[Rfam]
RNA: DUF3800-XI RNA
RNA sequence: UGGGCUGGUCGAAAGACCCGGGUCAUCUUAUGGCGGUAAGACACCC
Dot-bracket structure: ((.(((((((....))))..))))).....................
Numbered sequence: 001u002g003g004g005c006u007g008g009u010c011g012a013a014a015g016a017c018c019c020g021g022g023u024c025a026u027c028u029u030a031u032g033g034c035g036g037u038a039a040g041a042c043a044c045c046c
Stems, first nucleotide, its partner, number of pairs: 001025002004023003007018004